[Rfam]
Record summary:
The family of this 90-nucleotide RNA sequence from Triticum urartu is "small nucleolar RNA snoR126".
RNA sequence: UGGCUGUGAUGACAAUAAGAUAACUUAUUCAUACCUUAAUUUCAGUUAAGGACCAAAUCUGAUGACUUUAUUUGUGCGUGUCUGAGCCGG
Numbered sequence: 001u002g003g004c005u006g007u008g009a010u011g012a013c014a015a016u017a018a019g020a021u022a023a024c025u026u027a028u029u030c031a032u033a034c035c036u037u038a039a040u041u042u043c044a045g046u047u048a049a050g051g052a053c054c055a056a057a058u059c060u061g062a063u064g065a066c067u068u069u070a071u072u073u074g075u076g077c078g079u080g081u082c083u084g085a086g087c088c089g090g
Stems, first nucleotide, its partner, number of pairs: 001089004
Dot-bracket structure: ((((.................................................................................)))).

Rfam classes the family as a C/D-box small nucleolar RNA. Its family is annotated with RNA processing and nucleolus in the Gene Ontology. The family has 4 seed sequences and 423 matches in Rfam 15.1.